[Rfam]
RNA sequence: AUACCUUAAACUUAUGAGUAAGGAAAAUGAUGAUUCGGGGUGAUAUCCUAAUCCUCACUGCUAAUGUGAGAUGAAUUUUUGAGUGGGUAAAGAUUGCCUCUAAGGUGAGCUGUCUACUUUGUGGGAUGCCUGGGAGUCACGAUCUGCCCC
Numbered sequence: 001a002u003a004c005c006u007u008a009a010a011c012u013u014a015u016g017a018g019u020a021a022g023g024a025a026a027a028u029g030a031u032g033a034u035u036c037g038g039g040g041u042g043a044u045a046u047c048c049u050a051a052u053c054c055u056c057a058c059u060g061c062u063a064a065u066g067u068g069a070g071a072u073g074a075a076u077u078u079u080u081g082a083g084u085g086g087g088u089a090a091a092g093a094u095u096g097c098c099u100c101u102a103a104g105g106u107g108a109g110c111u112g113u114c115u116a117c118u119u120u121g122u123g124g125g126a127u128g129c130c131u132g133g134g135a136g137u138c139a140c141g142a143u144c145u146g147c148c149c150c
Stems, first nucleotide, its partner, number of pairs: 004023005032053004037048003054070005085149004091145006100134002103131005110124004
Dot-bracket structure: ...(((((..........)))))........((((.(((......))).))))(((((.......)))))..............((((..((((((...((.(((((..((((.......))))..))))).)).....)))))))))).
Record summary
Shown here is a 150-nucleotide sequence from Neomonachus schauinslandi, a member of the family "U12 minor spliceosomal RNA". Taxonomically the source falls in Neomonachus (Eukaryota, Bilateria, Sarcopterygii, Mammalia).